[Rfam]
RNA sequence: CGGGGCGAGACUUAGAAACCCCGCGCCCGGUUGUGUUAAUAGCACUGCUUUUGGCCGAGCAGGGCGGUUAGUGAAUC
Dot-bracket structure: (((((.............)))))............(((((.((.((((((......)))))).)).)))))......